[Rfam]
RNA sequence: CCUGUGGAGUGUUAUAUCAAACCGUAGUAGCUUCGGCAAGGCGGGACACUUUGAAGCAGGAA
Numbered sequence: 001c002c003u004g005u006g007g008a009g010u011g012u013u014a015u016a017u018c019a020a021a022c023c024g025u026a027g028u029a030g031c032u033u034c035g036g037c038a039a040g041g042c043g044g045g046a047c048a049c050u051u052u053g054a055a056g057c058a059g060g061a062a
Stems, first nucleotide, its partner, number of pairs: 001060005009049005022044003030037002
Rfam assigns this 62-nucleotide RNA to the family "RAGATH-18 RNA". Actinobacteria, Firmicutes, Fusobacteria, Thermotogae (1 example).